[Rfam]
RNA sequence: CCGCCCGUCGCUUCUACCGAUUGGAUGAAUAGGUGAGUGUUUUGGAGGUCUGGCUGUUGUUGGGCAACUGAUCGGGGUUGGGCUGAGGAUGUGCAAAUCUGUUUAUCUAGAGGAAGAAGAAGUCGUAACAAGAGUAUCUGAAGUGAACCUGCAGAAGGAUCAAAA
Numbered sequence: 001c002c003g004c005c006c007g008u009c010g011c012u013u014c015u016a017c018c019g020a021u022u023g024g025a026u027g028a029a030u031a032g033g034u035g036a037g038u039g040u041u042u043u044g045g046a047g048g049u050c051u052g053g054c055u056g057u058u059g060u061u062g063g064g065c066a067a068c069u070g071a072u073c074g075g076g077g078u079u080g081g082g083c084u085g086a087g088g089a090u091g092u093g094c095a096a097a098u099c100u101g102u103u104u105a106u107c108u109a110g111a112g113g114a115a116g117a118a119g120a121a122g123u124c125g126u127a128a129c130a131a132g133a134g135u136a137u138c139u140g141a142a143g144u145g146a147a148c149c150u151g152c153a154g155a156a157g158g159a160u161c162a163a164a165a
Base pairs, nucleotide, nucleotide: 001132003129006125007124009122011119012118013117014116015115017113018112021109023108024107025106026105027104028103029102030101031100032099033098034097037094038093039092040091042089043088047084048083049082050081051080052079053078054077055076057074059072060071061070062069135157137155138154139153140152142150143149
Eukaryotic small subunit ribosomal RNA: a 165-nucleotide part of an RNA from Amastigomonas sp. 2 Bamfield. Pairs were carried over by alignment from the consensus structure, which is taken from published work. The source organism's lineage runs through Eukaryota, Apusozoa, Apusomonadida, Apusomonadidae and Amastigomonas. Rfam's curators put it in the seed alignment.